[Rfam]
RNA sequence: AACUUCCAUCCAGGGGCUUUCUGCUAUAAAGCGCCCUGGCAUUGCCUGGGGGUACAUGAAAAAGCACAGACCCUCCCCAGGAAGACUCUUUUUCUGAGGGGCCUAUGAAUUGAGCUGACAGC
Numbered sequence: 001a002a003c004u005u006c007c008a009u010c011c012a013g014g015g016g017c018u019u020u021c022u023g024c025u026a027u028a029a030a031g032c033g034c035c036c037u038g039g040c041a042u043u044g045c046c047u048g049g050g051g052g053u054a055c056a057u058g059a060a061a062a063a064g065c066a067c068a069g070a071c072c073c074u075c076c077c078c079a080g081g082a083a084g085a086c087u088c089u090u091u092u093u094c095u096g097a098g099g100g101g102c103c104u105a106u107g108a109a110u111u112g113a114g115c116u117g118a119c120a121g122c
Stems, first nucleotide, its partner, number of pairs: 001047001004044001010039006016032005063116003067112002075101004082095001084093002
Rfam assigns this 122-nucleotide RNA from Hipposideros armiger to the family "Small nucleolar RNA SNORA49". Lineage of the source: Eukaryota > Sarcopterygii > Theria > Hipposideridae > Hipposideros. It is annotated as an H/ACA-box small nucleolar RNA. From the family's description: The snoRNA ACA49 has no identified RNA target. NB genomic sequence 1-nt different from published. Rfam 15.1 lists 722 matches to the family in 550 species. Its family is annotated with RNA processing and nucleolus in the Gene Ontology. The match comes from Rfam's covariance-model search (80 bits).